The family of this 113-nucleotide sequence from Lactococcus termiticola is "PyrR binding site".
The family's consensus secondary structure is taken from published work.
This family represents the PyrR binding site and terminator structure. This RNA structure is found upstream of a variety of genes involved in pyrimidine biosynthesis and transport. The alignment also includes a portion of the antiterminator structure.
Taxonomically the source falls in Lactococcus (Bacteria, Bacillati, Bacilli, Lactobacillales).
RNA sequence: AAAACUUUUAAUCUAGUCCAGAGAGGCUAAGAAAGUUGUGACGGGAAAGUAGGCGUAUUUUAGUCUGCUCUAUUUUGGCACACUUGCUUGGUCUUUGGCAGGUGUUUUUUUGU
Numbered sequence: 001a002a003a004a005c006u007u008u009u010a011a012u013c014u015a016g017u018c019c020a021g022a023g024a025g026g027c028u029a030a031g032a033a034a035g036u037u038g039u040g041a042c043g044g045g046a047a048a049g050u051a052g053g054c055g056u057a058u059u060u061u062a063g064u065c066u067g068c069u070c071u072a073u074u075u076u077g078g079c080a081c082a083c084u085u086g087c088u089u090g091g092u093c094u095u096u097g098g099c100a101g102g103u104g105u106u107u108u109u110u111u112g113u
Base pairs, nucleotide, nucleotide: 003037004036005035006034007033008032009031014029015028016027017026018025045076046075047074048073052069053068054067055066057064058063077108078107080105081104082103083102084101085100086099087098088097090095